[Rfam]
RNA sequence: UUUUGGGUUAGGGAUAGCAACGGCAUCCUUUUUAUUUUAUCUUUCUACAAAUCCAUACUUAUAAAAUAAAAAGAUAUAGUGGAUAGCCCGACCGCAA
Numbered sequence: 001u002u003u004u005g006g007g008u009u010a011g012g013g014a015u016a017g018c019a020a021c022g023g024c025a026u027c028c029u030u031u032u033u034a035u036u037u038u039a040u041c042u043u044u045c046u047a048c049a050a051a052u053c054c055a056u057a058c059u060u061a062u063a064a065a066a067u068a069a070a071a072a073g074a075u076a077u078a079g080u081g082g083a084u085a086g087c088c089c090g091a092c093c094g095c096a097a
Base pairs, nucleotide, nucleotide: 011089012088013087015085016084020080021079025075026074027073031070032069033068034067035066036065037064038063039062040061
Shown here is a 97-nucleotide sequence from Aquimarina sp. RZ0, a member of the family "Flavo-1 RNA". NCBI's taxonomy places the organism under Bacteria, Bacteroidota, Flavobacteriia, Flavobacteriaceae, Aquimarina.